[Rfam]
RNA sequence: UGAUGAGGCAUCUCCGGAAUCGCUGUAGCGCCGUGAUGACUCCUUCCUACCCUGGGUCUCUGAUGGCAGCGGCAGCCUCAGC
Numbered sequence: 001u002g003a004u005g006a007g008g009c010a011u012c013u014c015c016g017g018a019a020u021c022g023c024u025g026u027a028g029c030g031c032c033g034u035g036a037u038g039a040c041u042c043c044u045u046c047c048u049a050c051c052c053u054g055g056g057u058c059u060c061u062g063a064u065g066g067c068a069g070c071g072g073c074a075g076c077c078u079c080a081g082c
Stems, first nucleotide, its partner, number of pairs: 002082001004080003
This 82-nucleotide RNA sequence from Serilophus lunatus belongs to the Rfam family "Small nucleolar RNA MBII-202". A reference for the family is Huttenhofer et al. (2001), "RNomics: an experimental approach that identifies 201 candidates for novel, small, non-messenger RNAs in mouse", EMBO J. NCBI's taxonomy places the organism under Eukaryota, Gnathostomata, Telluraves, Passeriformes, Serilophus. By type it is a C/D-box small nucleolar RNA.